RNA sequence: GGUCGGGAGUGCGAAGGUCAUACAACACCCGAAAGGGAAAAACCUUCCGCCGUACCUUUGGACGGUUUGAGAGCUCCUGACCUUUUUUAU
Numbered sequence: 001g002g003u004c005g006g007g008a009g010u011g012c013g014a015a016g017g018u019c020a021u022a023c024a025a026c027a028c029c030c031g032a033a034a035g036g037g038a039a040a041a042a043c044c045u046u047c048c049g050c051c052g053u054a055c056c057u058u059u060g061g062a063c064g065g066u067u068u069g070a071g072a073g074c075u076c077c078u079g080a081c082c083u084u085u086u087u088u089a090u
Base pairs, nucleotide, nucleotide: 001082002081003080004079005078006077007076008075009074013047014046015045016044018042028037029036030035049066050065051064052063053062
This 90-nucleotide sequence from Halodesulfovibrio spirochaetisodalis belongs to the Rfam family "sRNA-Xcc1". A reference for the family is Chen et al. (2011), "sRNA-Xcc1, an integron-encoded transposon- and plasmid-transferred trans-acting sRNA, is under the positive control of the key virulence regulators HrpG and HrpX of Xanthomonas campestris pathovar campestris", RNA Biol. The family's consensus secondary structure was predicted with RNAalifold. A search with the family's covariance model found it, with a score of 67 bits. Taxonomically the source falls in Halodesulfovibrio (Bacteria, Pseudomonadati, Desulfovibrionia, Desulfovibrionaceae).